Archaeal small subunit ribosomal RNA: a 359-nucleotide part of an RNA from candidate division MSBL1 archaeon SCGC-AAA261D19. The match comes from Rfam's covariance-model search (1523 bits). The family's consensus secondary structure is taken from published work. Gene Ontology terms of the family: ribosome and structural constituent of ribosome.
[Rfam]
RNA sequence: GGCCUAAAGCAUCUGUAGCCGGGCUGGCAAGUUCCUUGUGAAAUCGGGCGGCUCAACCGUUCGGCUUGCAGGGAAAACUGCUGGUCUUGGGGCCGGGAGACGCUGAGGGUACUCCGGGGGUAGCGGUGAAAUGCUGUAAUCCUCGGGGGACCGCCGGUGGCGAAGGCGCUCAGCGAGAACGGACCCGACGGUGAGAGAUGAAGGCCAGGGGAGCGAACCGGAUUAGAUACCCGGGUAGUCCUGGCUGUAAAGUAUGCGGGCUAGGUGUGAGGCGUCCCUCGAGGGCGCUUUGGGCCGUAGGGAAGCCGUUAAGCCCGCCGCCUGGGAAGUACGGUCGCAAGGCUGAAACUUAAAGAAAU
Numbered sequence: 001g002g003c004c005u006a007a008a009g010c011a012u013c014u015g016u017a018g019c020c021g022g023g024c025u026g027g028c029a030a031g032u033u034c035c036u037u038g039u040g041a042a043a044u045c046g047g048g049c050g051g052c053u054c055a056a057c058c059g060u061u062c063g064g065c066u067u068g069c070a071g072g073g074a075a076a077a078c079u080g081c082u083g084g085u086c087u088u089g090g091g092g093c094c095g096g097g098a099g100a101c102g103c104u105g106a107g108g109g110u111a112c113u114c115c116g117g118g119g120g121u122a123g124c125g126g127u128g129a130a131a132u133g134c135u136g137u138a139a140u141c142c143u144c145g146g147g148g149g150a151c152c153g154c155c156g157g158u159g160g161c162g163a164a165g166g167c168g169c170u171c172a173g174c175g176a177g178a179a180c181g182g183a184c185c186c187g188a189c190g191g192u193g194a195g196a197g198a199u200g201a202a203g204g205c206c207a208g209g210g211g212a213g214c215g216a217a218c219c220g221g222a223u224u225a226g227a228u229a230c231c232c233g234g235g236u237a238g239u240c241c242u243g244g245c246u247g248u249a250a251a252g253u254a255u256g257c258g259g260g261c262u263a264g265g266u267g268u269g270a271g272g273c274g275u276c277c278c279u280c281g282a283g284g285g286c287g288c289u290u291u292g293g294g295c296c297g298u299a300g301g302g303a304a305g306c307c308g309u310u311a312a313g314c315c316c317g318c319c320g321c322c323u324g325g326g327a328a329g330u331a332c333g334g335u336c337g338c339a340a341g342g343c344u345g346a347a348a349c350u351u352a353a354a355g356a357a358a359u
Stems, first nucleotide, its partner, number of pairs: 001322003009319001011199004016193001018192003022086007030079002032075009045063007090186003093182003101175007108152002112148008123134003160167002204245006213239002218234004256318006264296003268292010300307002324351003333344004